[Rfam]
RNA sequence: CAAAAUAAACAGGGGAGCUUGUGUGACAGGCUGAGAGGAAGGUAGACCUUCGACCCUUGAACCUGAUGCGGAUAAUGCCGCCGGAGGAAGUCGUGGAGAUCGGUAC
Numbered sequence: 001c002a003a004a005a006u007a008a009a010c011a012g013g014g015g016a017g018c019u020u021g022u023g024u025g026a027c028a029g030g031c032u033g034a035g036a037g038g039a040a041g042g043u044a045g046a047c048c049u050u051c052g053a054c055c056c057u058u059g060a061a062c063c064u065g066a067u068g069c070g071g072a073u074a075a076u077g078c079c080g081c082c083g084g085a086g087g088a089a090g091u092c093g094u095g096g097a098g099a100u101c102g103g104u105a106c
Base pairs, nucleotide, nucleotide: 009091010090011057012056013055014054017031018030019029020028021027038051039050040049041048042047062087063086064085068081069080070079071078
Annotation: Rfam assigns this 106-nucleotide RNA sequence from Sporofaciens musculi to the family "TPP riboswitch aptamer (THI element)". Pairs were carried over by alignment from the consensus structure, which is taken from published work. Its family is annotated with thiamine pyrophosphate binding in the Gene Ontology.